[Rfam]
RNA: Acido-Lenti-1 RNA
Nucleotides: 045
Stems, first nucleotide, its partner, number of pairs: 001019003005015004032044004
Number, partner (000 for none) and nucleotide at each position: 001019c002018c003017c004000a005015g006014g007013g008012c009000u010000a011000c012008g013007c014006c015005c016000c017003g018002g019001g020000c021000u022000a023000a024000a025000u026000u027000g028000u029000g030000u031000u032044g033043c034042c035041c036000c037000u038000u039000c040000a041035g042034g043033g044032c045000a